[Rfam]
RNA sequence: GGAAACGAAUAUAAAAAAGCUCGUAUAAUUGCAGGAUGAAUCGGCCUGCGAGUCUCUACCCUGCCUCCGCAACGGCAGGACUACGGGCGGUACACAUACGGAC
Numbered sequence: 001g002g003a004a005a006c007g008a009a010u011a012u013a014a015a016a017a018a019g020c021u022c023g024u025a026u027a028a029u030u031g032c033a034g035g036a037u038g039a040a041u042c043g044g045c046c047u048g049c050g051a052g053u054c055u056c057u058a059c060c061c062u063g064c065c066u067c068c069g070c071a072a073c074g075g076c077a078g079g080a081c082u083a084c085g086g087g088c089g090g091u092a093c094a095c096a097u098a099c100g101g102a103c
Stems, first nucleotide, its partner, number of pairs: 019088007029051007060079006
Shown here is a 103-nucleotide RNA from Paenibacillus tyrphae, a member of the family "Purine riboswitch aptamer". Its family is annotated with purine nucleobase biosynthetic process in the Gene Ontology. NCBI's taxonomy places the organism under Bacteria, Bacilli, Caryophanales, Paenibacillaceae, Paenibacillus.